The family of this 84-nucleotide sequence from Odocoileus virginianus is "Small nucleolar RNA SNORD105". Its family is annotated with RNA processing and nucleolus in the Gene Ontology. U105 belongs to the C/D family of snoRNAs. It is encoded in an intron of the Suppressor of SWI4 1 homolog (Ssf-1) (Peter Pan homolog) gene. and is predicted to guide 2'O-ribose methylation of residue U799 of the small 18S rRNA subunit. The family is grouped with related families in Rfam's "SNORD105 clan". On this family, see Vitali et al., Nucleic Acids Res 2003: "Identification of 13 novel human modification guide RNAs". By type it is a C/D-box small nucleolar RNA. The family has 15 seed sequences and 146 matches in Rfam 15.1.
RNA sequence: CCGCCAGCUUUCAUGAUGACCCUUGUGCCUCUGAACUGCCAUGAUUCUGGCUUCAAAGUAAACGCUCUGAAGAGAUGGGCGGUG
Numbered sequence: 001c002c003g004c005c006a007g008c009u010u011u012c013a014u015g016a017u018g019a020c021c022c023u024u025g026u027g028c029c030u031c032u033g034a035a036c037u038g039c040c041a042u043g044a045u046u047c048u049g050g051c052u053u054c055a056a057a058g059u060a061a062a063c064g065c066u067c068u069g070a071a072g073a074g075a076u077g078g079g080c081g082g083u084g
Stems, first nucleotide, its partner, number of pairs: 002084004008079002